[Rfam]
RNA sequence: UUGCUGUGAUGACUAUCUUAGGACACCUUUGGAAUAACUGUGAAAGAAAACAGAAAGCAAC
Numbered sequence: 001u002u003g004c005u006g007u008g009a010u011g012a013c014u015a016u017c018u019u020a021g022g023a024c025a026c027c028u029u030u031g032g033a034a035u036a037a038c039u040g041u042g043a044a045a046g047a048a049a050a051c052a053g054a055a056a057g058c059a060a061c
Stems, first nucleotide, its partner, number of pairs: 001060004
RNA: Small nucleolar RNA SNORD58